[Rfam]
RNA sequence: GAGUGAAACCUCGUUAAGGAACUCGGCAAUCUAACCCCGUAACUUUGGAAUAAGGGGUGCCCUCGCAAGAGGGUCUCAGUAACCGGGUCAACCGACUGUUUAACAAAAACACAGCACUCUGCCAAGUCGAAUACGACGUAUAGGGUGUGACACGUGACCAAUGCGGAAAGAUUACGGUAAGGGGUUAGCCGCAAGGCGAAGCUCUGAGCCCAAGUCCCCGUGAAUGUCGGCCGUAACUAUAACGGUCCUAAGGUAGCGAAAUUCCUUGUCGGGUAAGUUCCGACCUGCACGAAUCGUGUAACGAGUUGACCGCUGUCUCGACGAGGAGCUCA
Dot-bracket structure: (((.....(((((((.(((..............(((((....(....).....)))))((((((....))))))(...)......(((((((((..(((.........)))..(((((((((...((.....))...)..))))))))..((((.(((..((((((...(((...((...(((((..((......))...)))))...))...))).))))..)))))((((((.......))))))(...).....(.........((((((.....))))))).........))))...)).)))))))....))).)))))))..))).
Numbered sequence: 001g002a003g004u005g006a007a008a009c010c011u012c013g014u015u016a017a018g019g020a021a022c023u024c025g026g027c028a029a030u031c032u033a034a035c036c037c038c039g040u041a042a043c044u045u046u047g048g049a050a051u052a053a054g055g056g057g058u059g060c061c062c063u064c065g066c067a068a069g070a071g072g073g074u075c076u077c078a079g080u081a082a083c084c085g086g087g088u089c090a091a092c093c094g095a096c097u098g099u100u101u102a103a104c105a106a107a108a109a110c111a112c113a114g115c116a117c118u119c120u121g122c123c124a125a126g127u128c129g130a131a132u133a134c135g136a137c138g139u140a141u142a143g144g145g146u147g148u149g150a151c152a153c154g155u156g157a158c159c160a161a162u163g164c165g166g167a168a169a170g171a172u173u174a175c176g177g178u179a180a181g182g183g184g185u186u187a188g189c190c191g192c193a194a195g196g197c198g199a200a201g202c203u204c205u206g207a208g209c210c211c212a213a214g215u216c217c218c219c220g221u222g223a224a225u226g227u228c229g230g231c232c233g234u235a236a237c238u239a240u241a242a243c244g245g246u247c248c249u250a251a252g253g254u255a256g257c258g259a260a261a262u263u264c265c266u267u268g269u270c271g272g273g274u275a276a277g278u279u280c281c282g283a284c285c286u287g288c289a290c291g292a293a294u295c296g297u298g299u300a301a302c303g304a305g306u307u308g309a310c311c312g313c314u315g316u317c318u319c320g321a322c323g324a325g326g327a328g329c330u331c332a
Stems, first nucleotide, its partner, number of pairs: 001331003009326007017318003034058005043048001059074006075079001086311007093303002097111003114148008122138001126134002151298004156228003161225002163221004170216003176210002181205005188197002229247006248252001258285001268284006
Annotation
The family of this 332-nucleotide part of an RNA from an uncultured Verrucomicrobiota bacterium is "Bacterial large subunit ribosomal RNA". Clan: LSU clan.